Notes:
Rfam assigns this 97-nucleotide RNA sequence from Cucumis sativus to the family "mir-166 microRNA precursor family". For this family Rfam cites "MicroRNAs in plants" (Reinhart et al., Genes Dev, 2002). From the family's description: This family represents the plant microRNA (miRNA) precursor mir-166.
[Rfam]
RNA sequence: UUUGAGGGGAAUGUUGUCUGGCUCGAGGACACUUGUUCUUUUUCAUCCAUUUCUUGAAUUCAUUAGUGUCGUCGGACCAGGCUUCAUUCCCCCCAAU
Numbered sequence: 001u002u003u004g005a006g007g008g009g010a011a012u013g014u015u016g017u018c019u020g021g022c023u024c025g026a027g028g029a030c031a032c033u034u035g036u037u038c039u040u041u042u043u044c045a046u047c048c049a050u051u052u053c054u055u056g057a058a059u060u061c062a063u064u065a066g067u068g069u070c071g072u073c074g075g076a077c078c079a080g081g082c083u084u085c086a087u088u089c090c091c092c093c094c095a096a097u
Stems, first nucleotide, its partner, number of pairs: 002096003006092008016082006024074003